RNA sequence: AAUAAUUUUCGGUAGGUGAGGUUACCUUAGGGAUACAGGUUGCUACCGCGAAAUAAUGGAGACAUUAUUAGUAGGUUAGCAGGAUACGUCGAAUACAAGGCGUAUUUUAAUGCAAUUAUAUUGCCCUAAGAUGCUAAAGCUUGAACGGGUAUAUUAUU
Numbered sequence: 001a002a003u004a005a006u007u008u009u010c011g012g013u014a015g016g017u018g019a020g021g022u023u024a025c026c027u028u029a030g031g032g033a034u035a036c037a038g039g040u041u042g043c044u045a046c047c048g049c050g051a052a053a054u055a056a057u058g059g060a061g062a063c064a065u066u067a068u069u070a071g072u073a074g075g076u077u078a079g080c081a082g083g084a085u086a087c088g089u090c091g092a093a094u095a096c097a098a099g100g101c102g103u104a105u106u107u108u109a110a111u112g113c114a115a116u117u118a119u120a121u122u123g124c125c126c127u128a129a130g131a132u133g134c135u136a137a138a139g140c141u142u143g144a145a146c147g148g149g150u151a152u153a154u155u156a157u158u
Stems, first nucleotide, its partner, number of pairs: 005154002008151001010149001011146001013098001015141003020135003026130007039116005046074001048072002055066004082107004088101003
A member of the RNA family "M-box riboswitch aptamer (ykoK leader)" from Clostridium gasigenes, 158 nucleotides long. It scores 105 bits against the family's covariance model. On this family, see Barrick et al., Proc Natl Acad Sci U S A 2004: "New RNA motifs suggest an expanded scope for riboswitches in bacterial genetic control". Taxonomically the source falls in Clostridium (Bacteria, Bacillota, Clostridia, Eubacteriales). The pairing is the family consensus, mapped onto this sequence. About the family: M-box riboswitch, also know as ykoK leader is described as a metaloregulatory RNA that sense divalent metals and function as a genetic control element of genes related to divalent metal transport in bacteria. It was first reported upstream of the B.subtilis ykoK gene and genes with related functions in other bacteria.